[Rfam]
RNA: L2-Alphaproteobacteria ribosomal protein leader
Organism: Rhodobacter ferrooxidans
RNA sequence: GGGGAUCUUCGGAGCCCUGCAAACCGGAUCCCAACGAUGGAUCCUUCAACUGACGGAAGACAGAAA
Dot-bracket structure: ((((.(.(...).))))).......(((((.((....)))))))......................